[Rfam]
Nucleotides: 073
Stems, first nucleotide, its partner, number of pairs: 005073002008070001010026001012024003041068002044066008
Number, partner (000 for none) and nucleotide at each position: 001000g002000u003000g004000c005073a006072u007000c008070c009000a010026g011000c012024a013023g014022g015000a016000a017000u018000u019000g020000a021000a022014c023013c024012u025000a026010c027000g028000a029000a030000u031000u032000c033000g034000c035000c036000a037000a038000u039000g040000u041068u042067g043000a044066g045065u046064u047063g048062g049061g050060u051059g052000c053000u054000u055000u056000a057000a058000c059051c060050a061049u062048u063047c064046a065045g066044u067042c068041a069000u070008g071000a072006a073005u